[Rfam]
RNA sequence: UCCAAAUGAUACUUCUUCUAACAUUGCUAUACUGUUGGCAACAUUGCUGCAAUGUUGCCAACAGUAUAGCAAUGUUAGAAGAAGUAUCAUUUGGAA
Dot-bracket structure: (.(.((((((.((((((((..((((((((((((((((((((.............))))))))))))))))))))..)))))))).))))))..).)